[Rfam]
RNA sequence: CGAGUAAGUCAGAUGGUCGCGUUGCCAAUAUUGGCAAUGAGGAAAGUCCGAGCUCCAUAGGGCAGGGUGCUGGGUAAUACCCAGUGGAGGCGACUCUAAGGAAAGUGCAACAGAAAUAUACCGCCUAUAUAGAAGUUGGAGGAUGGAUGCUAGAGGUUAGAUUUAAUCUCUAACGUCCAACUGCUAACCUCUAUUUGGGUAAGGGUGGAAAGGUGAGGUAAGAGCUCACCAGAGGCUAGGCGACUAGUCUGCUCUGUAAACCCCAUCUGGAGCAAGACCAAGUAGGGACUAAAAAAGGUGGCUGCCCGUUGCCGUCCCGGAGGUAGGUCGCAUGAGUCUACUGGCGACAGUAGACCUAGAUAGAUGACUAUCUAAUACAGAACUCGGCUUAUAGACUUGCUCGUUUA
Numbered sequence: 001c002g003a004g005u006a007a008g009u010c011a012g013a014u015g016g017u018c019g020c021g022u023u024g025c026c027a028a029u030a031u032u033g034g035c036a037a038u039g040a041g042g043a044a045a046g047u048c049c050g051a052g053c054u055c056c057a058u059a060g061g062g063c064a065g066g067g068u069g070c071u072g073g074g075u076a077a078u079a080c081c082c083a084g085u086g087g088a089g090g091c092g093a094c095u096c097u098a099a100g101g102a103a104a105g106u107g108c109a110a111c112a113g114a115a116a117u118a119u120a121c122c123g124c125c126u127a128u129a130u131a132g133a134a135g136u137u138g139g140a141g142g143a144u145g146g147a148u149g150c151u152a153g154a155g156g157u158u159a160g161a162u163u164u165a166a167u168c169u170c171u172a173a174c175g176u177c178c179a180a181c182u183g184c185u186a187a188c189c190u191c192u193a194u195u196u197g198g199g200u201a202a203g204g205g206u207g208g209a210a211a212g213g214u215g216a217g218g219u220a221a222g223a224g225c226u227c228a229c230c231a232g233a234g235g236c237u238a239g240g241c242g243a244c245u246a247g248u249c250u251g252c253u254c255u256g257u258a259a260a261c262c263c264c265a266u267c268u269g270g271a272g273c274a275a276g277a278c279c280a281a282g283u284a285g286g287g288a289c290u291a292a293a294a295a296a297g298g299u300g301g302c303u304g305c306c307c308g309u310u311g312c313c314g315u316c317c318c319g320g321a322g323g324u325a326g327g328u329c330g331c332a333u334g335a336g337u338c339u340a341c342u343g344g345c346g347a348c349a350g351u352a353g354a355c356c357u358a359g360a361u362a363g364a365u366g367a368c369u370a371u372c373u374a375a376u377a378c379a380g381a382a383c384u385c386g387g388c389u390u391a392u393a394g395a396c397u398u399g400c401u402c403g404u405u406u407a
Stems, first nucleotide, its partner, number of pairs: 001403010011392001012372007020039008044390003048387005053272004060307004065268005070084005085099001086097004100263002105261002107257003121204002123200005129194005212230006232252001233250007276329004286317004298312005336355008
Rfam assigns this 407-nucleotide RNA from Paramaledivibacter caminithermalis to the family "Bacterial RNase P class A". Rfam's curators write: Ribonuclease P (RNase P) is a ubiquitous endoribonuclease, found in archaea, bacteria and eukarya as well as chloroplasts and mitochondria. By type it is a ribozyme.